[Rfam]
RNA: Plastid-psbN 5UTR RNA
Organism: Triticum urartu
RNA sequence: UGUGACCCCCAUAAAAGGAUUAGUCCCCCAACACGGGGUGACUUUCCCAUAUUCCGAUCUU
Numbered sequence: 001u002g003u004g005a006c007c008c009c010c011a012u013a014a015a016a017g018g019a020u021u022a023g024u025c026c027c028c029c030a031a032c033a034c035g036g037g038g039u040g041a042c043u044u045u046c047c048c049a050u051a052u053u054c055c056g057a058u059c060u061u
Base pairs, nucleotide, nucleotide: 017045018044019043021041023039024038025037026036027035